A member of the RNA family "mir-135 microRNA precursor family" from Polypterus senegalus, 86 nucleotides long. Rfam 15.1 lists 2,125 matches to the family in 647 species.
RNA sequence: UCGCUGCUGGGUUUUAUGGCUUUCUAUUCCUAUGUGAUUUUCUGUCCUAUUUCAUGUAGGGUCCAAAGCCAUUGGACGCAGAGCGG
Dot-bracket structure: .((((.(((.((((.((((((((....((((((((((..............))))))))))...)))))))).)))).))))))).

For this family Rfam cites "Identification of tissue-specific microRNAs from mouse" (Lagos-Quintana et al., Curr Biol, 2002). The match comes from Rfam's covariance-model search (64 bits).